[Rfam]
RNA: Bacterial large subunit ribosomal RNA, nucleotides 2626 to 2873
RNA sequence: GGAAAGUUGAGGAGAGCUGUCCCUAGUACGAGAGGACCGGGAUGGACACGCCACUGGUGUAAGAGUUGUUCUGCCAAGAGCAUCGCUCUGUAGCUACGCGUGGAUGUGAUAACCGCUGAAAGCAUCUAAGCGGGAAGCCAACUCCAAGAUUAACUUUCCCUGAAGGUCGCAGCAAGACUAGCUGCUUGAUAGGGUAGGUGUGUAAGCAUAGUAAUAUGUUCAGCUGACUACUACUAAUAGACCGUUUG
Numbered sequence: 001g002g003a004a005a006g007u008u009g010a011g012g013a014g015a016g017c018u019g020u021c022c023c024u025a026g027u028a029c030g031a032g033a034g035g036a037c038c039g040g041g042a043u044g045g046a047c048a049c050g051c052c053a054c055u056g057g058u059g060u061a062a063g064a065g066u067u068g069u070u071c072u073g074c075c076a077a078g079a080g081c082a083u084c085g086c087u088c089u090g091u092a093g094c095u096a097c098g099c100g101u102g103g104a105u106g107u108g109a110u111a112a113c114c115g116c117u118g119a120a121a122g123c124a125u126c127u128a129a130g131c132g133g134g135a136a137g138c139c140a141a142c143u144c145c146a147a148g149a150u151u152a153a154c155u156u157u158c159c160c161u162g163a164a165g166g167u168c169g170c171a172g173c174a175a176g177a178c179u180a181g182c183u184g185c186u187u188g189a190u191a192g193g194g195u196a197g198g199u200g201u202g203u204a205a206g207c208a209u210a211g212u213a214a215u216a217u218g219u220u221c222a223g224c225u226g227a228c229u230a231c232u233a234c235u236a237a238u239a240g241a242c243c244g245u246u247u248g
Stems, first nucleotide, its partner, number of pairs: 001159008011145004017045007047102005055096003062089005067082006108138001113133005162245001165243004169185005190236003193232005200224001206219005